[Rfam]
RNA sequence: AGAAAAUAAAAAGCGCCAGAACUUGACAGUUACGUGAAAAAUGUUAAGUUGACGAGGACUAGAGUGAUCGAAAAUUCGGCGGAUGCUCUAGAGGGUUCACACCCUAAAUAAGCCAACAAAACUAAAAAGUGAUUUUUAGGACAAAGGGUUUAUCGUGAAUUUC
Number, nucleotide and partner (000 for none) at each position: 001a000002g000003a000004a000005a000006a000007u000008a000009a000010a000011a000012a000013g000014c000015g000016c000017c000018a000019g000020a050021a049022c048023u047024u046025g045026a044027c043028a000029g000030u000031u000032a000033c000034g000035u000036g000037a000038a000039a000040a000041a000042u000043g027044u026045u025046a024047a023048g022049u021050u020051g000052a000053c000054g000055a000056g000057g000058a000059c091060u090061a089062g088063a087064g000065u000066g000067a000068u079069c078070g077071a076072a000073a000074a000075u000076u071077c070078g069079g068080c000081g000082g000083a000084u000085g000086c000087u063088c062089u061090a060091g059092a105093g104094g103095g102096u101097u000098c000099a000100c000101a096102c095103c094104c093105u092106a000107a000108a153109u152110a151111a150112g149113c148114c147115a000116a000117c000118a000119a000120a000121a000122c139123u138124a137125a136126a135127a134128a133129g000130u000131g000132a000133u128134u127135u126136u125137u124138a123139g122140g000141a000142c000143a000144a000145a000146g000147g114148g113149u112150u111151u110152a109153u108154c000155g000156u000157g000158a000159a000160u000161u000162u000163c000
The record is a 163-nucleotide RNA from Cellulosilyticum lentocellum, which matches "glmS glucosamine-6-phosphate activated ribozyme aptamer" in Rfam. It is annotated as a riboswitch. The literature on the family includes a 2004 paper in Nature by Winkler et al., "Control of gene expression by a natural metabolite-responsive ribozyme". This entry contains a glucosamine-6-phosphate activated ribozyme that is found in the mRNA for GlmS. GlmS is an enzyme that uses fructose-6-phosphate and glutamine to generate glucosamine-6-phosphate. The ribozyme catalyses self cleavage of the glmS mRNA that is thought to regulate GlmS activity.